[Rfam]
Rfam assigns this 177-nucleotide RNA sequence from Chaetura pelagica to the family "Small Cajal body specific RNA 16".
The family's consensus secondary structure was predicted with RNAfold.
From the family's description: scaRNAs are a specific class of small nuclear RNAs which localise to the Cajal bodies and guide the modification of RNA polymerase II transcribed spliceosomal RNAs U1, U2, U4, U5 and U12. ACA47 belongs to the H/ACA box class of guide RNAs as it has the predicted hairpin-hinge-hairpin-tail structure, the conserved H/ACA-box motifs and is found associated with GAR1. ACA47 is predicted to guide the pseudouridylation of residue U5 of the U1 spliceosomal snRNA.
A reference for the family is Darzacq et al. (2002), "Cajal body-specific small nuclear RNAs: a novel class of 2'-O-methylation and pseudouridylation guide RNAs", EMBO J.
It is annotated as a small Cajal body RNA.
Its family is annotated with RNA processing and nucleolus in the Gene Ontology.
RNA sequence: CAGGGCUGGGGAAGGGCUACUGGGCUGUGGGGCCAGCAGGCCCAGCCUCGUACCAGCCAGCCCCACCCCGUGCCCCAGAGCAAGGCCCGGGCUGCUCCUGCUGGGCUCAUCCGUGCAGUUCCAGGUGUGAGCACCAGUGCAGCCUUUUGGUGCUCAUGUAUGAUGCUGCAGACACCU
Dot-bracket structure: ..((((.(((....((((.(((.(..((.(.(((....))).).))......))))..))))...)))...))))...........((.((.....)).....))........((((((..((....(((.((((...(......)..)))).)))....))..)))))).......
Numbered sequence: 001c002a003g004g005g006c007u008g009g010g011g012a013a014g015g016g017c018u019a020c021u022g023g024g025c026u027g028u029g030g031g032g033c034c035a036g037c038a039g040g041c042c043c044a045g046c047c048u049c050g051u052a053c054c055a056g057c058c059a060g061c062c063c064c065a066c067c068c069c070g071u072g073c074c075c076c077a078g079a080g081c082a083a084g085g086c087c088c089g090g091g092c093u094g095c096u097c098c099u100g101c102u103g104g105g106c107u108c109a110u111c112c113g114u115g116c117a118g119u120u121c122c123a124g125g126u127g128u129g130a131g132c133a134c135c136a137g138u139g140c141a142g143c144c145u146u147u148u149g150g151u152g153c154u155c156a157u158g159u160a161u162g163a164u165g166c167u168g169c170a171g172a173c174a175c176c177u
Stems, first nucleotide, its partner, number of pairs: 003075004008068003015062004020056003024053001027046002030043001032041003087105002090098002114170006122162002128156003132152004139146001